The family of this 138-nucleotide RNA is "IS605-orfB-II RNA".
RNA sequence: CAUGAUGAGCUGUCAUAGCUUGGAUUGUAUAGCAGGUAGUCGCAGUCGCCUACAUUAAAUAAUUUUUUUAAUGUAAAAAAGAUUCAUUCAAAAUGAAUCUUUUGAAACGUUAGAAUUGUUAUGAUUUUAAUGAACUGU
Numbered sequence: 001c002a003u004g005a006u007g008a009g010c011u012g013u014c015a016u017a018g019c020u021u022g023g024a025u026u027g028u029a030u031a032g033c034a035g036g037u038a039g040u041c042g043c044a045g046u047c048g049c050c051u052a053c054a055u056u057a058a059a060u061a062a063u064u065u066u067u068u069u070a071a072u073g074u075a076a077a078a079a080a081g082a083u084u085c086a087u088u089c090a091a092a093a094u095g096a097a098u099c100u101u102u103u104g105a106a107a108c109g110u111u112a113g114a115a116u117u118g119u120u121a122u123g124a125u126u127u128u129a130a131u132g133a134a135c136u137g138u
Stems, first nucleotide, its partner, number of pairs: 006022006034051004042138004055086001057084001061083001063081007090103004108132009